[Rfam]
RNA sequence: GGGGGAGCGCAGGAUCCUGGGCUGUGUCCCCUAGCGCCCUGGGCUCCAGGGCCUGAGCCACUGGAAUCGCGUUUAGGGCCGCGCAGCCCCCU
Numbered sequence: 001g002g003g004g005g006a007g008c009g010c011a012g013g014a015u016c017c018u019g020g021g022c023u024g025u026g027u028c029c030c031c032u033a034g035c036g037c038c039c040u041g042g043g044c045u046c047c048a049g050g051g052c053c054u055g056a057g058c059c060a061c062u063g064g065a066a067u068c069g070c071g072u073u074u075a076g077g078g079c080c081g082c083g084c085a086g087c088c089c090c091c092u
Base pairs, nucleotide, nucleotide: 001091002090003089004088005087009084010083012080013079016078017077020074021073023071024070025069026068027065028064031063032060034058035057037055041053043052044051045050